The family of this 45-nucleotide RNA sequence from Anoxybacillus flavithermus is "PreQ1 (pre queuosine) riboswitch aptamer". About the family: This family is a bacterial riboswitch that binds to the metabolite preQ1, an intermediate in the biosynthesis of the modified nucleoside queuosine from GTP. One example of this riboswitch is located in the leader of the Bacillus subtilis ykvJKLM (queCDEF) operon which encodes four genes necessary for queuosine production. PreQ1 binding to the riboswitch aptamer is thought to induce premature transcription termination within the leader to down-regulate expression of these genes.

RNA sequence: GCAGGAGAGGUUCUAGAACACCCUCUAUAAAAAAACUAGGGAUAG
Number, nucleotide and partner (000 for none) at each position: 001g000002c000003a000004g000005g000006a026007g025008a024009g023010g022011u000012u000013c000014u000015a000016g037017a000018a000019c000020a000021c000022c010023c009024u008025c007026u006027a000028u000029a000030a000031a000032a000033a000034a000035a000036c000037u016038a000039g000040g000041g000042a000043u000044a000045g000